RNA: Burkholderia RNA 7 (anti-hemB)
RNA sequence: ACGCCUGCUCUCUCCCUAUGCAGGUGCCUUAUUUUUUAAUAUAGGCCUUUACCCCCCACCCUUCCCAAUUGUGGGGGGUUUUUUUU
Number, nucleotide and partner (000 for none) at each position: 001a000002c000003g000004c024005c023006u022007g021008c020009u000010c000011u000012c000013u000014c000015c000016c000017u000018a000019u000020g008021c007022a006023g005024g004025u000026g046027c045028c044029u043030u041031a040032u039033u000034u000035u000036u000037u000038a000039a032040u031041a030042u000043a029044g028045g027046c026047c000048u000049u000050u000051a000052c078053c077054c076055c075056c074057c073058a072059c071060c000061c000062u000063u000064c000065c000066c000067a000068a000069u000070u000071g059072u058073g057074g056075g055076g054077g053078g052079u000080u000081u000082u000083u000084u000085u000086u000